A member of the RNA family "Small nucleolar RNA snoR136" from Jatropha curcas, 147 nucleotides long. Rfam classes the family as an H/ACA-box small nucleolar RNA. The match comes from Rfam's covariance-model search (79 bits). The base pairs follow the family's consensus structure, which was predicted with mfold.
RNA sequence: AAGGCUUUUUCAAUCUUUGUAUUAAGAUCACAGCUUUACACUAAUUUCAAUGGGUUAAUGCUGCUUUUUGUGAAGCCUAAAAAGUUGUUUCCCUCGCUAUCCAAGGCUGAAUUUUAUGUUGCAUUUGGACGUUGGGAAACUACAUUC
Number, nucleotide and partner (000 for none) at each position: 001a000002a000003g077004g076005c075006u000007u000008u000009u000010u000011c072012a071013a000014u000015c000016u000017u000018u000019g000020u000021a068022u000023u000024a065025a000026g000027a000028u000029c000030a000031c063032a062033g061034c060035u000036u058037u057038a000039c000040a055041c054042u053043a000044a000045u000046u000047u000048c000049a000050a000051u000052g000053g042054g041055u040056u000057a037058a036059u000060g034061c033062u032063g031064c000065u024066u000067u000068u021069u000070g000071u012072g011073a000074a000075g005076c004077c003078u000079a000080a000081a000082a000083a000084g000085u000086u000087g140088u139089u138090u137091c136092c135093c134094u000095c131096g130097c000098u000099a000100u129101c128102c127103a126104a125105g000106g000107c000108u118109g117110a000111a000112u000113u000114u000115u000116a000117u109118g108119u000120u000121g000122c000123a000124u000125u104126u103127g102128g101129a100130c096131g095132u000133u000134g093135g092136g091137a090138a089139a088140c087141u000142a000143c000144a000145u000146u000147c000